RNA: mir-367 microRNA precursor family
RNA sequence: CUAAGACUGUUGCUAAUAUGCAACUCUGUUAAAUAAAAAUUGGAAUUGCACUUUAGCAAUGGUGAUAG
Numbered sequence: 001c002u003a004a005g006a007c008u009g010u011u012g013c014u015a016a017u018a019u020g021c022a023a024c025u026c027u028g029u030u031a032a033a034u035a036a037a038a039a040u041u042g043g044a045a046u047u048g049c050a051c052u053u054u055a056g057c058a059a060u061g062g063u064g065a066u067a068g
Stems, first nucleotide, its partner, number of pairs: 006063011019050005025044004